[Rfam]
RNA sequence: UCCAUCGUGAGAUGGAAUCUGAAAGAAGCCUGCGGCAAAACUCUGGUCUGACGAACAGAAAUCACAUAUAAGGCUUACUUAAAUCGGGUGAGUUUGCUAAACAAAACGAAACCCAAUGCUAUCCGAGGUUUAAGGAGUAAAUGUGGCAGAUAUAUGGAGUGAAAGCAGUCGUU
Numbered sequence: 001u002c003c004a005u006c007g008u009g010a011g012a013u014g015g016a017a018u019c020u021g022a023a024a025g026a027a028g029c030c031u032g033c034g035g036c037a038a039a040a041c042u043c044u045g046g047u048c049u050g051a052c053g054a055a056c057a058g059a060a061a062u063c064a065c066a067u068a069u070a071a072g073g074c075u076u077a078c079u080u081a082a083a084u085c086g087g088g089u090g091a092g093u094u095u096g097c098u099a100a101a102c103a104a105a106a107c108g109a110a111a112c113c114c115a116a117u118g119c120u121a122u123c124c125g126a127g128g129u130u131u132a133a134g135g136a137g138u139a140a141a142u143g144u145g146g147c148a149g150a151u152a153u154a155u156g157g158a159g160u161g162a163a164a165g166c167a168g169u170c171g172u173u
Stems, first nucleotide, its partner, number of pairs: 001016006028173001030171001032169001035166002040160006046151005062146006073138003078134007086114004092107004
A member of the RNA family "Group II catalytic intron D1-D4-3" from Clostridium sp. JN-9, 173 nucleotides long. On this family, see Bonen and Vogel, Trends Genet 2001: "The ins and outs of group II introns". The base pairs follow the family's consensus structure.